[Rfam]
RNA sequence: UCCCGUUGCCCUUCUUGGGCGUUUCCUCCCUAGACUUCGGGCCGCUCCCUCACCGGGGCGGCCUUUUUUGUCGAGGCA
Dot-bracket structure: .......((((.....))))...................(((((((((......)))))))))...............
Numbered sequence: 001u002c003c004c005g006u007u008g009c010c011c012u013u014c015u016u017g018g019g020c021g022u023u024u025c026c027u028c029c030c031u032a033g034a035c036u037u038c039g040g041g042c043c044g045c046u047c048c049c050u051c052a053c054c055g056g057g058g059c060g061g062c063c064u065u066u067u068u069u070g071u072c073g074a075g076g077c078a
Stems, first nucleotide, its partner, number of pairs: 008020004040063009
The record is a 78-nucleotide sequence from Methylorubrum rhodinum, which matches "Makes More Granules Regulator RNA (mmgR)" in Rfam. The base pairs follow the family's consensus structure. A search with the family's covariance model found it, with a score of 73 bits. SuhB later renamed mmgR (makes more granules regulator) was a putative non-coding RNA found multiple times in the Agrobacterium tumefaciens genome and related alpha-proteobacteria. Other non-coding RNAs uncovered in the same analysis include: speF, ybhL, metA, and serC.Several studies inSinorhizobium meliloti showed that suhB element is indeed a non-coding RNA:firstly it was detected on Northern blot and called Sm8RNA, secondly in an RNAseq study referred to as SmelC689.The mutant phenotype's (strain lacking the small RNA) cytoplasm contains higher content of polyhydroxybutyrate (PBH)storage granules than wild type strain. The sRNA is required to limit the PBH intracellular accumulation when the nitrogen-fixing Sinorhizobium meliloti is under condition of surplus carbon in relation to nitrogen. The source organism's lineage runs through Bacteria, Alphaproteobacteria, Hyphomicrobiales, Methylobacteriaceae and Methylorubrum.